[Rfam]
The family of this 60-nucleotide part of an RNA from Fusobacterium animalis is "Bacterial large subunit ribosomal RNA". The organism belongs to Fusobacterium animalis, within Bacteria.
RNA sequence: CGUUCUGUAGGCUGUUGAAGAAGAAGGGUAACCAACUUUGGAGGUAUCAGAAGUGAGAAU
Numbered sequence: 001c002g003u004u005c006u007g008u009a010g011g012c013u014g015u016u017g018a019a020g021a022a023g024a025a026g027g028g029u030a031a032c033c034a035a036c037u038u039u040g041g042a043g044g045u046a047u048c049a050g051a052a053g054u055g056a057g058a059a060u
Base pairs, nucleotide, nucleotide: 001055003052004051005050006049007048011045012044013043020039021038022037023036026033027032